[Rfam]
RNA sequence: CCACCCGUCAUUGGGGAGUAGCCGCCCUCCGAAUUGCGAGAGGGGCUUGCGUCAACAGACUUGAUCCAUCCGCGAUCAUGGCGCAAGCGACUUCAGGUUUGGCGAGACCUUUGACCAUGCCGCCUCUGCGUUGGGCCGGAGGGCGCGCAUGGUCAUCGGUUCAUGUCCGGCCCUGGAGUGUUC
Numbered sequence: 001c002c003a004c005c006c007g008u009c010a011u012u013g014g015g016g017a018g019u020a021g022c023c024g025c026c027c028u029c030c031g032a033a034u035u036g037c038g039a040g041a042g043g044g045g046c047u048u049g050c051g052u053c054a055a056c057a058g059a060c061u062u063g064a065u066c067c068a069u070c071c072g073c074g075a076u077c078a079u080g081g082c083g084c085a086a087g088c089g090a091c092u093u094c095a096g097g098u099u100u101g102g103c104g105a106g107a108c109c110u111u112u113g114a115c116c117a118u119g120c121c122g123c124c125u126c127u128g129c130g131u132u133g134g135g136c137c138g139g140a141g142g143g144c145g146c147g148c149a150u151g152g153u154c155a156u157c158g159g160u161u162c163a164u165g166u167c168c169g170g171c172c173c174u175g176g177a178g179u180g181u182u183c
Base pairs, nucleotide, nucleotide: 026043027042028041045088046087047086048085049084050083051082052081053080054079062078063077064076065075066074089182090181091180092177093176094175095174096173
RNA: Manganese Mn2+ riboswitch aptamer (yybP-ykoY)
Organism: Noviherbaspirillum autotrophicum